This 125-nucleotide RNA from Macaca mulatta belongs to the Rfam family "Small nucleolar RNA SNORA77". Gene Ontology terms of the family: RNA processing and nucleolus. On this family, see Schattner et al., RNA 2006: "A computational screen for mammalian pseudouridylation guide H/ACA RNAs". The organism belongs to Macaca, within Eukaryota. Pairs were carried over by alignment from the consensus structure, which was predicted with RNAalifold.
RNA sequence: GCAGACUCACUUGGAACCUGACUGCAACUCAAGAUGGGUGCUUUUUCCUUCUGCCAGAAUAACAUUCUGGGGUGCUGUGGCCACCUGACCUGUCAAGACUUAUGUAGCUGCCCAGGAACACAGGG
Numbered sequence: 001g002c003a004g005a006c007u008c009a010c011u012u013g014g015a016a017c018c019u020g021a022c023u024g025c026a027a028c029u030c031a032a033g034a035u036g037g038g039u040g041c042u043u044u045u046u047c048c049u050u051c052u053g054c055c056a057g058a059a060u061a062a063c064a065u066u067c068u069g070g071g072g073u074g075c076u077g078u079g080g081c082c083a084c085c086u087g088a089c090c091u092g093u094c095a096a097g098a099c100u101u102a103u104g105u106a107g108c109u110g111c112c113c114a115g116g117a118a119c120a121c122a123g124g125g
Stems, first nucleotide, its partner, number of pairs: 001054005014041001016039005022033002066116006074108006083100001086097001

Rfam's curators put it in the seed alignment. From the family's description: ACA63 (SNORA77) is a member of the H/ACA class of snoRNAs that guide the sites of modification of uridines to pseudouridines. This snoRNA was identified by computational screening and its expression in mouse experimentally verified by Northern blot and primer extension analysis. ACA63 is proposed to guide the pseudouridylation of 18S rRNA U814.